[Rfam]
RNA: MIR2629 microRNA precursor family
Nucleotides: 069
Stems, first nucleotide, its partner, number of pairs: 012065002015062003019058010
Number, partner (000 for none) and nucleotide at each position: 001000u002000g003000c004000c005000g006000a007000a008000g009000u010000c011000c012065u013064c014000c015062u016061c017060g018000a019058c020057a021056g022055u023054u024053a025052a026051c027050u028049g029000c030000a031000g032000u033000c034000g035000g036000u037000u038000c039000c040000a041000u042000a043000a044000u045000u046000c047000g048000a049028c050027a051026g052025u053024u054023a055022a056021c057020u058019g059000c060017c061016g062015a063000g064013g065012g066000g067000u068000a069000u